RNA sequence: GUGACAGAAGAGAGUGAGCACACAUGGUGUUUUCUUGCAUGAUGUUUUAUAUGCUUGAAGCUAUUUGUGCUCACUCUCUGUCUGUCAC
Numbered sequence: 001g002u003g004a005c006a007g008a009a010g011a012g013a014g015u016g017a018g019c020a021c022a023c024a025u026g027g028u029g030u031u032u033u034c035u036u037g038c039a040u041g042a043u044g045u046u047u048u049a050u051a052u053g054c055u056u057g058a059a060g061c062u063a064u065u066u067g068u069g070c071u072c073a074c075u076c077u078c079u080g081u082c083u084g085u086c087a088c
Base pairs, nucleotide, nucleotide: 001088002087003086004085005084006083007082008081010078011077012076013075014074015073016072017071018070019069020068021067024064025063
The record is an 88-nucleotide RNA sequence from Anisodus acutangulus, which matches "mir-156 microRNA precursor family" in Rfam.
The base pairs follow the family's consensus structure, which was predicted with PFOLD.
Rfam describes the family as follows. This family represents the plant microRNA (miRNA) precursor mir-156.
On this family, see Reinhart et al., Genes Dev 2002: "MicroRNAs in plants".
The family has 10 seed sequences and 1,401 matches in Rfam 15.1.
It scores 84 bits against the family's covariance model.